[Rfam]
RNA sequence: UCUCUCCGACGUCAACGCCUGCCCCAUGACGGGCCACGGCCCCAACCCGACCGUGACUGGCUCCCCCGACGU
Numbered sequence: 001u002c003u004c005u006c007c008g009a010c011g012u013c014a015a016c017g018c019c020u021g022c023c024c025c026a027u028g029a030c031g032g033g034c035c036a037c038g039g040c041c042c043c044a045a046c047c048c049g050a051c052c053g054u055g056a057c058u059g060g061c062u063c064c065c066c067c068g069a070c071g072u
Stems, first nucleotide, its partner, number of pairs: 007071002017040003020036002023033003052068002055065001

The record is a 72-nucleotide sequence from Pseudomonas sp. HPB0071, which matches "Pseudomonas sRNA P10" in Rfam. Rfam 15.1 lists 62 matches to the family in 42 species. For this family Rfam cites "Identification of 17 Pseudomonas aeruginosa sRNAs and prediction of sRNA-encoding genes in 10 diverse pathogens using the bioinformatic tool sRNAPredict2" (Livny et al., Nucleic Acids Res, 2006).